[Rfam]
RNA sequence: GCUGAUGAUGAUUUGCCUAAUGUGUGAGGUGUAGACAGCUCCAAGUCCCUGCGUGCCAGGGAGAACCUACUUGGAGUCCUACAUUCAAAUGAAAAUUUAUGGGCAUUUUCUGAGGU
Numbered sequence: 001g002c003u004g005a006u007g008a009u010g011a012u013u014u015g016c017c018u019a020a021u022g023u024g025u026g027a028g029g030u031g032u033a034g035a036c037a038g039c040u041c042c043a044a045g046u047c048c049c050u051g052c053g054u055g056c057c058a059g060g061g062a063g064a065a066c067c068u069a070c071u072u073g074g075a076g077u078c079c080u081a082c083a084u085u086c087a088a089a090u091g092a093a094a095a096u097u098u099a100u101g102g103g104c105a106u107u108u109u110c111u112g113a114g115g116u
Stems, first nucleotide, its partner, number of pairs: 001116003047061005
This 116-nucleotide RNA from Sorghum bicolor belongs to the Rfam family "Small nucleolar RNA Z278". The family's RNA type in Rfam is C/D-box small nucleolar RNA. About the family: snoZ278 is a C/D box small nucleolar RNA. Its methylation guide targets have not been reported. The source organism's lineage runs through Eukaryota, Streptophyta, Streptophytina, Mesangiospermae and Sorghum. The base pairs follow the family's consensus structure, which was predicted with PFOLD.